[Rfam]
mir-7 microRNA precursor family: an 86-nucleotide RNA from Erinaceus europaeus.
Rfam links the family to the GO terms RISC complex and miRNA-mediated post-transcriptional gene silencing.
About the family: This family represents the microRNA (miRNA) precursor mir-7.
On this family, see Lagos-Quintana et al., Science 2001: "Identification of novel genes coding for small expressed RNAs".
The organism belongs to Erinaceus, within Eukaryota.

RNA sequence: CGGUCCCGCGCUGCGUGGAAGACUAGUGAUUUUGUUGUUGUGGUUGGAGGCGACAACAAGUCAUAGCUUCCUCACAGCGGGGACCC
Dot-bracket structure: .(((((..(.(((.(.((.((.((.(((((((.((((((............))))))))))))))).)))).).))).).))))).